[Rfam]
RNA sequence: UCCUCGAUAGCUCAGUUGGUAGAGCAAACGGCUGUUAACCGUUAGGUCGUAGGUUCGAGUCCUACUCGGGGAG
Number, nucleotide and partner (000 for none) at each position: 001u072002c071003c070004u069005c068006g067007a066008u000009a000010g025011c024012u023013c022014a000015g000016u000017u000018g000019g000020u000021a000022g013023a012024g011025c010026a000027a043028a042029c041030g040031g039032c000033u000034g000035u000036u000037a000038a000039c031040c030041g029042u028043u027044a000045g000046g000047u000048c000049g065050u064051a063052g062053g061054u000055u000056c000057g000058a000059g000060u000061c053062c052063u051064a050065c049066u007067c006068g005069g004070g003071g002072a001073g000

The record is a 73-nucleotide RNA from Lacrimispora algidixylanolytica, which matches "tRNA" in Rfam. The match comes from Rfam's covariance-model search (72 bits). Taxonomically the source falls in Lacrimispora (Bacteria, Bacillati, Clostridia, Lachnospiraceae).